[Rfam]
RNA sequence: AGCUCUAACCCCAAACCCUAUCUCCACCUCCACGUGGUGACCGCUGGGAGCUCUUUCUUAAUGAAAAGUUGCAGACGGAGAAGG
Numbered sequence: 001a002g003c004u005c006u007a008a009c010c011c012c013a014a015a016c017c018c019u020a021u022c023u024c025c026a027c028c029u030c031c032a033c034g035u036g037g038u039g040a041c042c043g044c045u046g047g048g049a050g051c052u053c054u055u056u057c058u059u060a061a062u063g064a065a066a067a068g069u070u071g072c073a074g075a076c077g078g079a080g081a082a083g084g
Stems, first nucleotide, its partner, number of pairs: 017084003021080001023078002026038003049070004054065002057063001
drz-agam-1 ribozyme: an 84-nucleotide RNA sequence from Hermetia illucens. Rfam links the family to the GO term catalytic activity. On this family, see Webb et al., Science 2009: "Widespread occurrence of self-cleaving ribozymes". The match comes from Rfam's covariance-model search (39 bits). The organism belongs to Hermetia, within Eukaryota.